[Rfam]
RNA sequence: GGGAUCGGACCGGGAGAAUCGGCGCAUGCCGAUGCCGAAGGAGCAACCGCCCCGGAAACUCUCAGGCGCAAGGACCGUCCGAUCGA
Numbered sequence: 001g002g003g004a005u006c007g008g009a010c011c012g013g014g015a016g017a018a019u020c021g022g023c024g025c026a027u028g029c030c031g032a033u034g035c036c037g038a039a040g041g042a043g044c045a046a047c048c049g050c051c052c053c054g055g056a057a058a059c060u061c062u063c064a065g066g067c068g069c070a071a072g073g074a075c076c077g078u079c080c081g082a083u084c085g086a
Stems, first nucleotide, its partner, number of pairs: 005082005011077003019032004034067003037063002041061003047055002
Dot-bracket structure: ....(((((.(((.....((((......)))).(((((..(((...((.....))...))))).))).......))))))))....
RNA: Glycine riboswitch aptamer